[Rfam]
A member of the RNA family "Actinobacteria sRNA Ms_IGR-5", 215 nucleotides long.

RNA sequence: ACACGAGAAGGGAGGUGGUCCGAGGAAUGAGUUCUUCUUGGAUGCGUGAGGUGGCUGCGGGCUAGCAGCUUUCCGGCUGGUCCACCUCUCGGUGCGAGUGCCGAGGUGCUGCUGGCCAAUCCGACGCAGUCACCCGACCCGCGGGCGCCAGGGACACUCCAUCCGGUCCUUGGGCGGCUCUUCUUCACGAGGGCCACGCCCGCGGGUCGUUCCAC
Numbered sequence: 001a002c003a004c005g006a007g008a009a010g011g012g013a014g015g016u017g018g019u020c021c022g023a024g025g026a027a028u029g030a031g032u033u034c035u036u037c038u039u040g041g042a043u044g045c046g047u048g049a050g051g052u053g054g055c056u057g058c059g060g061g062c063u064a065g066c067a068g069c070u071u072u073c074c075g076g077c078u079g080g081u082c083c084a085c086c087u088c089u090c091g092g093u094g095c096g097a098g099u100g101c102c103g104a105g106g107u108g109c110u111g112c113u114g115g116c117c118a119a120u121c122c123g124a125c126g127c128a129g130u131c132a133c134c135c136g137a138c139c140c141g142c143g144g145g146c147g148c149c150a151g152g153g154a155c156a157c158u159c160c161a162u163c164c165g166g167u168c169c170u171u172g173g174g175c176g177g178c179u180c181u182u183c184u185u186c187a188c189g190a191g192g193g194c195c196a197c198g199c200c201c202g203c204g205g206g207u208c209g210u211u212c213c214a215c
Base pairs, nucleotide, nucleotide: 015058016057017056018055019054060117061116062115063114064113065112066111068109069108071106074103075102076101135209136208137207138206139205140204141203142202143201144200145199146198147197149172150171151170152169153168154167
Rfam classes the family as a small RNA. A reference for the family is Li et al. (2013), "Identification of small RNAs in Mycobacterium smegmatis using heterologous Hfq", RNA.